[Rfam]
RNA sequence: UGUGAAAAAGGCAACUCCAUCGCAAGGUGGACGCGCAAAGUCACCGGUCCGAAAGGGUUCGCGCCCUGGACAGCGGGACUGCCGAAU
Dot-bracket structure: ..((......((...((((((....))))))..[))..((((.((((((((...............))))).])))))))..))...
Numbered sequence: 001u002g003u004g005a006a007a008a009a010g011g012c013a014a015c016u017c018c019a020u021c022g023c024a025a026g027g028u029g030g031a032c033g034c035g036c037a038a039a040g041u042c043a044c045c046g047g048u049c050c051g052a053a054a055g056g057g058u059u060c061g062c063g064c065c066c067u068g069g070a071c072a073g074c075g076g077g078a079c080u081g082c083c084g085a086a087u
Stems, first nucleotide, its partner, number of pairs: 003084002011036002016031006034073001039080004044076003047071005
Rfam assigns this 87-nucleotide RNA from Desulfuromonas soudanensis to the family "c-di-GMP-I-GGC riboswitch aptamer". Taxonomically the source falls in Desulfuromonas (Bacteria, Thermodesulfobacteriota, Desulfuromonadia, Desulfuromonadales). A search with the family's covariance model found it, with a score of 59 bits.